[Rfam]
RNA sequence: CAGCUGUGAUGAAUUUUAUUCCAAUCAUUCGCAGUUUCCACCAUAAAGACAUCUUGUCUUAAUGAUGGCUGAAGAUCCUUCCUUGGAUGUCUGAGCUG
Numbered sequence: 001c002a003g004c005u006g007u008g009a010u011g012a013a014u015u016u017u018a019u020u021c022c023a024a025u026c027a028u029u030c031g032c033a034g035u036u037u038c039c040a041c042c043a044u045a046a047a048g049a050c051a052u053c054u055u056g057u058c059u060u061a062a063u064g065a066u067g068g069c070u071g072a073a074g075a076u077c078c079u080u081c082c083u084u085g086g087a088u089g090u091c092u093g094a095g096c097u098g
Stems, first nucleotide, its partner, number of pairs: 001098004047059005